[Rfam]
Shown here is a 170-nucleotide sequence from Mycobacterium leprae, a member of the family "M-box riboswitch aptamer (ykoK leader)". About the family: M-box riboswitch, also know as ykoK leader is described as a metaloregulatory RNA that sense divalent metals and function as a genetic control element of genes related to divalent metal transport in bacteria. It was first reported upstream of the B.subtilis ykoK gene and genes with related functions in other bacteria. Its family is annotated with response to magnesium ion and regulation of gene expression in the Gene Ontology.

RNA sequence: CAAGCACCUCGGUAGGUGAGGCUUCUGCAUGGAUAUAGGCCACCGAUCCCGGACGUCGAGAGAUGCAUCGGGUCAAGACAACUCCCAGGGUUGGGUCCAAGUCCAAGUGGUUUCUGGACGUUGGUCCAGAUAUGCUGUGCAGUGCCUAAGCUCCGGCGAUGAGGGGAUGC
Numbered sequence: 001c002a003a004g005c006a007c008c009u010c011g012g013u014a015g016g017u018g019a020g021g022c023u024u025c026u027g028c029a030u031g032g033a034u035a036u037a038g039g040c041c042a043c044c045g046a047u048c049c050c051g052g053a054c055g056u057c058g059a060g061a062g063a064u065g066c067a068u069c070g071g072g073u074c075a076a077g078a079c080a081a082c083u084c085c086c087a088g089g090g091u092u093g094g095g096u097c098c099a100a101g102u103c104c105a106a107g108u109g110g111u112u113u114c115u116g117g118a119c120g121u122u123g124g125u126c127c128a129g130a131u132a133u134g135c136u137g138u139g140c141a142g143u144g145c146c147u148a149a150g151c152u153c154c155g156g157c158g159a160u161g162a163g164g165g166g167a168u169g170c
Base pairs, nucleotide, nucleotide: 005166007164008163009162010161011157015152016151017150020146021145022144025142026141027140028139029138030137031136032135039111040110041109042108043107045074046073047072048071049070054065055064056063057062081102082101083100113130114129115128116127117126